TPP riboswitch aptamer (THI element): a 113-nucleotide RNA from Hydrogeniiclostridium mannosilyticum. The family's consensus secondary structure is taken from published work. It scores 57 bits against the family's covariance model.
RNA sequence: UGAACUGAAUCGGGGCGCUGCGUAACCGCGGCUGAGAUGGAGCGAAGUGACGCUCAUGUCCCUUGAACCUGAUCUGGGUAAUGCCAGCGUAGGAAAAAACGAGGUCUUUAGAC
Numbered sequence: 001u002g003a004a005c006u007g008a009a010u011c012g013g014g015g016c017g018c019u020g021c022g023u024a025a026c027c028g029c030g031g032c033u034g035a036g037a038u039g040g041a042g043c044g045a046a047g048u049g050a051c052g053c054u055c056a057u058g059u060c061c062c063u064u065g066a067a068c069c070u071g072a073u074c075u076g077g078g079u080a081a082u083g084c085c086a087g088c089g090u091a092g093g094a095a096a097a098a099a100c101g102a103g104g105u106c107u108u109u110a111g112a113c
Stems, first nucleotide, its partner, number of pairs: 006101002010097001012062003017032005040055004068093004074087004